Source information
The family of this 120-nucleotide sequence is "LOOT RNA". The family's RNA type in Rfam is small RNA. Pairs were carried over by alignment from the consensus structure, which is taken from published work.

RNA sequence: CGCCUAACCCCUACGGUUUUCCAUAGGGUAUGGCAUAAAAACCAACGACGGUAAAAAGCUCCUAGUCAGAGCACCGUCGUUGGUCAUGCCUCGAAAGGGGUGUGGGUCCCGCAAGGGAUC
Numbered sequence: 001c002g003c004c005u006a007a008c009c010c011c012u013a014c015g016g017u018u019u020u021c022c023a024u025a026g027g028g029u030a031u032g033g034c035a036u037a038a039a040a041a042c043c044a045a046c047g048a049c050g051g052u053a054a055a056a057a058g059c060u061c062c063u064a065g066u067c068a069g070a071g072c073a074c075c076g077u078c079g080u081u082g083g084u085c086a087u088g089c090c091u092c093g094a095a096a097g098g099g100g101u102g103u104g105g106g107u108c109c110c111g112c113a114a115g116g117g118a119u120c
Stems, first nucleotide, its partner, number of pairs: 002034003009028005015022001042083011058072004085104008105120006